[Rfam]
RNA: Eukaryotic large subunit ribosomal RNA, nucleotides 1 to 438
RNA sequence: CGGCCUCGGAUCGAGCGAGAUUACCCGCUGAACUUAAGCAUAUCACUAAGCGGAGGAAAAGAAACCAACCGGGAUUCCCUCAGUAGCGGCGAGCGAAGCGGGAAAAGCCCAUCGCCGAAUCCCCCGUCGGACCUCGGCGGUUUGGGAACUGUGGCGUAAGGGUCCGACUCGUCGGGCGUCUGACCGUCCGAACAAGUCCCGCGGGACAGGUGUGCUCCCAGAGUGGGUGUGAGGCCUUUAGUUCGGUCUGGGUCUUCUGCUCGGCGCAGUCGGUACCUGAGAGUCGAGUUGUUUGGGAUCGCAGCUCAAAGUGGGUGGUAAGCUCCAUCUAAGGCUAAAUACUUGCACGAGUCCGAUAGCGAACAAGUACCGUGAGGGAAAGUUGAAAAGAACUUUGAAGAGAGAGUUCAAGAGACCGUGAAAGCGCCUACGGGCAAA
Numbered sequence: 001c002g003g004c005c006u007c008g009g010a011u012c013g014a015g016c017g018a019g020a021u022u023a024c025c026c027g028c029u030g031a032a033c034u035u036a037a038g039c040a041u042a043u044c045a046c047u048a049a050g051c052g053g054a055g056g057a058a059a060a061g062a063a064a065c066c067a068a069c070c071g072g073g074a075u076u077c078c079c080u081c082a083g084u085a086g087c088g089g090c091g092a093g094c095g096a097a098g099c100g101g102g103a104a105a106a107g108c109c110c111a112u113c114g115c116c117g118a119a120u121c122c123c124c125c126g127u128c129g130g131a132c133c134u135c136g137g138c139g140g141u142u143u144g145g146g147a148a149c150u151g152u153g154g155c156g157u158a159a160g161g162g163u164c165c166g167a168c169u170c171g172u173c174g175g176g177c178g179u180c181u182g183a184c185c186g187u188c189c190g191a192a193c194a195a196g197u198c199c200c201g202c203g204g205g206a207c208a209g210g211u212g213u214g215c216u217c218c219c220a221g222a223g224u225g226g227g228u229g230u231g232a233g234g235c236c237u238u239u240a241g242u243u244c245g246g247u248c249u250g251g252g253u254c255u256u257c258u259g260c261u262c263g264g265c266g267c268a269g270u271c272g273g274u275a276c277c278u279g280a281g282a283g284u285c286g287a288g289u290u291g292u293u294u295g296g297g298a299u300c301g302c303a304g305c306u307c308a309a310a311g312u313g314g315g316u317g318g319u320a321a322g323c324u325c326c327a328u329c330u331a332a333g334g335c336u337a338a339a340u341a342c343u344u345g346c347a348c349g350a351g352u353c354c355g356a357u358a359g360c361g362a363a364c365a366a367g368u369a370c371c372g373u374g375a376g377g378g379a380a381a382g383u384u385g386a387a388a389a390g391a392a393c394u395u396u397g398a399a400g401a402g403a404g405a406g407u408u409c410a411a412g413a414g415a416c417c418g419u420g421a422a423a424g425c426g427c428c429u430a431c432g433g434g435c436a437a438a
Stems, first nucleotide, its partner, number of pairs: 024055001025053005035042002065072002076103004086094002106336004113156005119150001120147004124140005161277002164273003170266004175257002178254001180252002186248001188246005196216001199210002219223001226236002286307007313330005370377002393404004